[Rfam]
RNA sequence: GAGUGAGGUAGAGGCGCGAAAACCAUCAGUACCCCCUGGAGAUUGGGCAAUCGACGACAGGUGCGGGAAAGGGGAAUUCGCCGAAGUGCAUCAGCCGCCCAUGCUGCAUGCGCUGGGCCUGCGUUGAACAAGCGCAGGACUGUCAUCUGUGCCUGACCCAUGGCCCAGAUGGAGAGCUAUCUCACCA
Number, nucleotide and partner (000 for none) at each position: 001g000002a000003g000004u000005g000006a182007g181008g180009u179010a178011g177012a000013g000014g000015c000016g081017c080018g079019a078020a077021a000022a000023c074024c073025a000026u000027c000028a000029g000030u000031a000032c066033c065034c063035c061036c060037u059038g058039g000040a000041g000042a000043u000044u000045g000046g000047g000048c000049a000050a000051u000052c000053g000054a000055c000056g000057a000058c038059a037060g036061g035062u000063g034064c000065g033066g032067g000068a000069a000070a000071g000072g000073g024074g023075a000076a000077u020078u019079c018080g017081c016082c000083g000084a000085a114086g113087u112088g111089c110090a109091u108092c106093a105094g104095c103096c000097g000098c000099c000100c000101a000102u000103g095104c094105u093106g092107c000108a091109u090110g089111c088112g087113c086114u085115g141116g140117g000118c138119c137120u136121g135122c134123g133124u132125u131126g000127a000128a000129c000130a000131a125132g124133c123134g122135c121136a120137g119138g118139a000140c116141u115142g000143u172144c171145a170146u169147c168148u167149g166150u000151g000152c000153c000154u000155g000156a000157c000158c000159c000160a000161u000162g000163g000164c000165c000166c149167a148168g147169a146170u145171g144172g143173a000174g000175a000176g000177c011178u010179a009180u008181c007182u006183c000184a000185c000186c000187a000
The family of this 187-nucleotide RNA from Brevibacillus fulvus is "Lysine riboswitch aptamer". Lineage of the source: Bacteria > Bacillati > Caryophanales > Paenibacillaceae > Brevibacillus. A search with the family's covariance model found it, with a score of 108 bits.